[Rfam]
RNA sequence: GUCGAGCCAUAUAACGUGGGCUUGUAACCUAAGUAGGGGCAAUAAUGUGGUGGAAUGUUAGGUUGAUCUUGAAGGCUGGGCUUCGAAUAGUUAAUGUCUGCUUGCCCUAUCCAAGCAUGGAGUUGAGUCAUGUGGCCCAAAUAAAAAUAUGGGCUUUUUGGCUCCUAGAGUGGAGUGGAUUGCGUGAGGCUAGUUUCACAGAGCAACGAAAAACUCCUGCUUUGUGCAGUGGAAAGAUAACGGGCCAGUGCUAUUUAAGUCCAACAAACACCCGAUGGGCAACAUAAUUAAACCACCAUUUUU
Numbered sequence: 001g002u003c004g005a006g007c008c009a010u011a012u013a014a015c016g017u018g019g020g021c022u023u024g025u026a027a028c029c030u031a032a033g034u035a036g037g038g039g040c041a042a043u044a045a046u047g048u049g050g051u052g053g054a055a056u057g058u059u060a061g062g063u064u065g066a067u068c069u070u071g072a073a074g075g076c077u078g079g080g081c082u083u084c085g086a087a088u089a090g091u092u093a094a095u096g097u098c099u100g101c102u103u104g105c106c107c108u109a110u111c112c113a114a115g116c117a118u119g120g121a122g123u124u125g126a127g128u129c130a131u132g133u134g135g136c137c138c139a140a141a142u143a144a145a146a147a148u149a150u151g152g153g154c155u156u157u158u159u160g161g162c163u164c165c166u167a168g169a170g171u172g173g174a175g176u177g178g179a180u181u182g183c184g185u186g187a188g189g190c191u192a193g194u195u196u197c198a199c200a201g202a203g204c205a206a207c208g209a210a211a212a213a214c215u216c217c218u219g220c221u222u223u224g225u226g227c228a229g230u231g232g233a234a235a236g237a238u239a240a241c242g243g244g245c246c247a248g249u250g251c252u253a254u255u256u257a258a259g260u261c262c263a264a265c266a267a268a269c270a271c272c273c274g275a276u277g278g279g280c281a282a283c284a285u286a287a288u289u290a291a292a293c294c295a296c297c298a299u300u301u302u303u
Stems, first nucleotide, its partner, number of pairs: 001040003004023005028037003044302002047299007056290002058287003062283004068278002074272002078262006085255002088253003092250002098248002100245005106236001110233004115227009125164006132157001134155006141148002165170001172217005181210001183208003190201002
Shown here is a 303-nucleotide RNA from Nicotiana sylvestris, a member of the family "Plant signal recognition particle RNA". Lineage of the source: Eukaryota > Viridiplantae > Mesangiospermae > Gunneridae > Nicotiana. For this family Rfam cites "Kinship in the SRP RNA family" (Rosenblad et al., RNA Biol, 2009). Gene Ontology terms of the family: signal recognition particle, endoplasmic reticulum targeting and SRP-dependent cotranslational protein targeting to membrane, signal sequence recognition. The family's RNA type in Rfam is non-coding RNA gene.